[Rfam]
RNA sequence: UGGGCCCGGGAGGGGUGUCGGCCAUUAGUGCCUAACCCUAACUGAGAAGGGCGUAGGCGCCGUGCUUUUGCUUCCCGCGCGCUGUUUUUCUCGCUGACUUUCAGCGGGCGGAAAAGCCUUGGCCUACUGCCGUCCACAGUCUAGUUUGGAGCAAACAAAAAAUGUCAGCGCUGGCCGGUUCACCCCUCCCGGGACCUGCGGUGGCUCGCCCGCCCUGCCCCGAGCCCUGCCUAAAGGCCGCGGUCGACCUGGGGCUUCUCCGGAGGUGCCCAAUGUCGCCGCGAAGAGUUGGGCUCUGUCAGCCGCGGGUCCUUCGGGUGCCAAGGGCGAGGCUCAGGCCUGCUGGCCGCAGGAAAGUAACGGAGCGGGUCCCUUCACGCGGUGCGCUUCCCUGAGCAGUGGGACUUGCGCCCGGGACUCAGCUCCUACAUAC
Number, nucleotide and partner (000 for none) at each position: 001u000002g000003g000004g000005c193006c192007c191008g190009g189010g188011a187012g186013g185014g184015g183016u182017g181018u000019c177020g176021g175022c174023c173024a000025u000026u000027a000028g000029u000030g000031c000032c000033u000034a000035a000036c000037c000038c000039u000040a000041a000042c000043u000044g000045a000046g000047a000048a000049g000050g000051g000052c000053g000054u000055a000056g000057g000058c000059g000060c000061c000062g000063u000064g117065c116066u115067u114068u113069u000070g000071c000072u000073u000074c000075c000076c110077g109078c108079g000080c106081g105082c104083u103084g102085u000086u000087u000088u000089u000090c000091u000092c000093g169094c168095u167096g166097a165098c164099u162100u161101u160102c084103a083104g082105c081106g080107g000108g078109c077110g076111g000112a000113a068114a067115a066116g065117c064118c000119u000120u000121g000122g000123c000124c000125u000126a000127c000128u000129g000130c000131c000132g000133u000134c000135c000136a000137c000138a000139g000140u000141c000142u000143a000144g000145u000146u000147u000148g000149g000150a000151g000152c000153a000154a000155a000156c000157a000158a000159a000160a101161a100162a099163u000164g098165u097166c096167a095168g094169c093170g000171c000172u000173g023174g022175c021176c020177g019178g000179u000180u000181c017182a016183c015184c014185c013186c012187u011188c010189c009190c008191g007192g006193g005194a000195c353196c352197u351198g350199c349200g348201g347202u000203g000204g000205c000206u000207c000208g333209c332210c331211c329212g328213c327214c326215c325216u000217g000218c000219c318220c317221c316222g315223a314224g000225c000226c309227c308228u307229g306230c305231c000232u000233a000234a000235a000236g000237g000238c000239c283240g282241c281242g280243g279244u000245c278246g277247a276248c275249c000250u000251g271252g270253g269254g000255c000256u000257u000258c000259u000260c000261c000262g000263g000264a000265g000266g000267u000268g000269c253270c252271c251272a000273a000274u000275g248276u247277c246278g245279c243280c242281g241282c240283g239284a000285a297286g296287a295288g294289u000290u000291g000292g000293g000294c288295u287296c286297u285298g000299u000300c000301a000302g000303c000304c000305g230306c229307g228308g227309g226310u000311c000312c000313u000314u223315c222316g221317g220318g219319u000320g000321c000322c000323a000324a000325g215326g214327g213328c212329g211330a000331g210332g209333c208334u000335c000336a000337g000338g000339c000340c000341u000342g000343c000344u000345g000346g000347c201348c200349g199350c198351a197352g196353g195354a000355a000356a000357g000358u000359a000360a000361c000362g000363g425364a424365g423366c422367g420368g419369g418370u417371c416372c415373c414374u000375u000376c000377a000378c000379g000380c000381g000382g411383u410384g409385c408386g407387c000388u000389u404390c403391c402392c401393u000394g000395a000396g000397c000398a000399g000400u000401g392402g391403g390404a389405c000406u000407u386408g385409c384410g383411c382412c000413c000414g373415g372416g371417a370418c369419u368420c367421a000422g366423c365424u364425c363426c000427u000428a000429c000430a000431u000432a000433c000